[Rfam]
RNA sequence: ACAAAAAAGCAAAAAGAGAAAUCAUGAACAUGAACAAGAAUACAUAUUGGUGGUGGCGCUACUCAGAACUCAAAAGGUCGUGAGGAGCUAGUCUUGUAUAUCUUGGUGUUCAUACUUGAAAUAAAAAGAUACUGAAAAGGCUUGUC
Numbered sequence: 001a002c003a004a005a006a007a008a009g010c011a012a013a014a015a016g017a018g019a020a021a022u023c024a025u026g027a028a029c030a031u032g033a034a035c036a037a038g039a040a041u042a043c044a045u046a047u048u049g050g051u052g053g054u055g056g057c058g059c060u061a062c063u064c065a066g067a068a069c070u071c072a073a074a075a076g077g078u079c080g081u082g083a084g085g086a087g088c089u090a091g092u093c094u095u096g097u098a099u100a101u102c103u104u105g106g107u108g109u110u111c112a113u114a115c116u117u118g119a120a121a122u123a124a125a126a127a128g129a130u131a132c133u134g135a136a137a138a139g140g141c142u143u144g145u146c
Stems, first nucleotide, its partner, number of pairs: 036113001038111001040109003044099004049094002056088002060085001068078003
RNA: Bacteroidete tryptophan peptide leader RNA
Organism: Bacteroides sp. OF04-15BH